The family of this 95-nucleotide RNA sequence is "Rhodo-rpoB RNA". It is annotated as a cis-regulatory element. The base pairs follow the family's consensus structure, which is taken from published work.

RNA sequence: GGCUCGGGAGCAGGCCGGUGGGACGGUCUGCAGGCAUGGAGCCCGCCCCAAUCUUCGCAAGCGGCGCCCGGCCGUGGCCCCCGACGGCCCGAGCG
Number, nucleotide and partner (000 for none) at each position: 001g043002g042003c041004u040005c039006g000007g000008g000009a000010g031011c030012a029013g028014g027015c026016c025017g024018g000019u000020g000021g000022g000023a000024c017025g016026g015027u014028c013029u012030g011031c010032a000033g000034g000035c000036a000037u000038g000039g005040a004041g003042c002043c001044c000045g000046c000047c000048c000049c000050a000051a000052u000053c000054u000055u000056c000057g000058c000059a000060a000061g000062c000063g000064g000065c095066g094067c093068c000069c091070g089071g088072c087073c086074g085075u000076g000077g000078c000079c000080c000081c000082c000083g000084a000085c074086g073087g072088c071089c070090c000091g069092a000093g067094c066095g065